The family of this 566-nucleotide part of an RNA from Strigomonas culicis is "Eukaryotic small subunit ribosomal RNA".
The literature on the family includes a 2001 paper in Science by Yusupov et al., "Crystal structure of the ribosome at 5.5 A resolution".
NCBI's taxonomy places the organism under Eukaryota, Discoba, Euglenozoa, Kinetoplastea, Strigomonas.
The family's consensus secondary structure is taken from published work.
Its family is annotated with structural constituent of ribosome and ribosome in the Gene Ontology.
RNA sequence: UGUUUCAAGGACUUAGCCAUGCAUGCCUCAGAAUCACUGCACUGCAGGAAUCUGCGCAUGGCUCAUUACAUCAGACGUAAUCUGCCGCAAGAAUGUUGCGGUGUACUCCGUACUAUUGGAUAACUUGGCGAAACGCCAAGCUAAUACAUGAACCAAGCGGGCGCUCUCCACUCCAGGCGCGGGGGCCACCUCGCGUCGCGGGACGCCCAGCGAAUGAAUGACCGUAAAACCGAUGCGCUUCACGGCGCAGUAACACCCAGACGUGUUGACUCAAUUCAUUCCGUGUGCAAGCCGGGCUUCCGGCGUUUUUUGACGAACAACUGCCCUAUCAGCUGGUUGAUGGCCGUGUAGUGGACUGCCAUGGCGUUGACGGGAGCGGGGAAUUAGGGUUCGAUUCCGGAGAGGGAGCCUGAGAAAUAGCUACCACUUCUACGGAGGGCAGCAGGCGCGCAAAUUGCCCAAUGUCAAGAAAAACGAUGAGGCAGCGAAAAGAAAUAGGGUUGUCAGUCCAACUGGAUUGGCAUUUCAAUGGGGGAUAUUUAAACCCAUCCAAUAUCGAGUAGCCA
Numbered sequence: 001u002g003u004u005u006c007a008a009g010g011a012c013u014u015a016g017c018c019a020u021g022c023a024u025g026c027c028u029c030a031g032a033a034u035c036a037c038u039g040c041a042c043u044g045c046a047g048g049a050a051u052c053u054g055c056g057c058a059u060g061g062c063u064c065a066u067u068a069c070a071u072c073a074g075a076c077g078u079a080a081u082c083u084g085c086c087g088c089a090a091g092a093a094u095g096u097u098g099c100g101g102u103g104u105a106c107u108c109c110g111u112a113c114u115a116u117u118g119g120a121u122a123a124c125u126u127g128g129c130g131a132a133a134c135g136c137c138a139a140g141c142u143a144a145u146a147c148a149u150g151a152a153c154c155a156a157g158c159g160g161g162c163g164c165u166c167u168c169c170a171c172u173c174c175a176g177g178c179g180c181g182g183g184g185g186c187c188a189c190c191u192c193g194c195g196u197c198g199c200g201g202g203a204c205g206c207c208c209a210g211c212g213a214a215u216g217a218a219u220g221a222c223c224g225u226a227a228a229a230c231c232g233a234u235g236c237g238c239u240u241c242a243c244g245g246c247g248c249a250g251u252a253a254c255a256c257c258c259a260g261a262c263g264u265g266u267u268g269a270c271u272c273a274a275u276u277c278a279u280u281c282c283g284u285g286u287g288c289a290a291g292c293c294g295g296g297c298u299u300c301c302g303g304c305g306u307u308u309u310u311u312g313a314c315g316a317a318c319a320a321c322u323g324c325c326c327u328a329u330c331a332g333c334u335g336g337u338u339g340a341u342g343g344c345c346g347u348g349u350a351g352u353g354g355a356c357u358g359c360c361a362u363g364g365c366g367u368u369g370a371c372g373g374g375a376g377c378g379g380g381g382a383a384u385u386a387g388g389g390u391u392c393g394a395u396u397c398c399g400g401a402g403a404g405g406g407a408g409c410c411u412g413a414g415a416a417a418u419a420g421c422u423a424c425c426a427c428u429u430c431u432a433c434g435g436a437g438g439g440c441a442g443c444a445g446g447c448g449c450g451c452a453a454a455u456u457g458c459c460c461a462a463u464g465u466c467a468a469g470a471a472a473a474a475c476g477a478u479g480a481g482g483c484a485g486c487g488a489a490a491a492g493a494a495a496u497a498g499g500g501u502u503g504u505c506a507g508u509c510c511a512a513c514u515g516g517a518u519u520g521g522c523a524u525u526u527c528a529a530u531g532g533g534g535g536a537u538a539u540u541u542a543a544a545c546c547c548a549u550c551c552a553a554u555a556u557c558g559a560g561u562a563g564c565c566a
Stems, first nucleotide, its partner, number of pairs: 003493003009486001010449001016447003020444003025055002030053003037047002062402003072323003077318002081316002087311001089309002117148002124140006159208004165202002214279006228267003237246003291304005325374003332365003340362005346356002377399004381392004404425002407422003427438004455484001457483003463479004499527002502523009533557002535554001537553001